The record is a 164-nucleotide RNA sequence from Pogona vitticeps, which matches "U1 spliceosomal RNA" in Rfam. Rfam's curators write: U1 is a small nuclear RNA (snRNA) component of the spliceosome (involved in pre-mRNA splicing). The family's RNA type in Rfam is spliceosomal small nuclear RNA. A search with the family's covariance model found it, with a score of 147 bits. Its family is annotated with mRNA 5'-splice site recognition, pre-mRNA 5'-splice site binding and U1 snRNP in the Gene Ontology. Pairs were carried over by alignment from the consensus structure, which is taken from published work. The source organism's lineage runs through Eukaryota, Opisthokonta, Bilateria, Amphibolurinae and Pogona.
RNA sequence: AUACUUACCUGGCAGGGGAGAUACCAUGAUCAUGAAAGUGGUUUUCCCAGGGUGAGGCUUAUCCAUUGCACUUUGUGUGUGCUGAUCCCUGUGAUUUCCCCAAAUGUGGGAAAAUCAACUGCACAAUUUGUAGUAGUGGAGGACUGUGUUUGUGCUUUCCCCUG
Numbered sequence: 001a002u003a004c005u006u007a008c009c010u011g012g013c014a015g016g017g018g019a020g021a022u023a024c025c026a027u028g029a030u031c032a033u034g035a036a037a038g039u040g041g042u043u044u045u046c047c048c049a050g051g052g053u054g055a056g057g058c059u060u061a062u063c064c065a066u067u068g069c070a071c072u073u074u075g076u077g078u079g080u081g082c083u084g085a086u087c088c089c090u091g092u093g094a095u096u097u098c099c100c101c102a103a104a105u106g107u108g109g110g111a112a113a114a115u116c117a118a119c120u121g122c123a124c125a126a127u128u129u130g131u132a133g134u135a136g137u138g139g140a141g142g143a144c145u146g147u148g149u150u151u152g153u154g155c156u157u158u159c160c161c162c163u164g
Stems, first nucleotide, its partner, number of pairs: 012122004016048006023042005049090004054086001056083003060079003064075001092117003095113003099109002138163002141160003146155003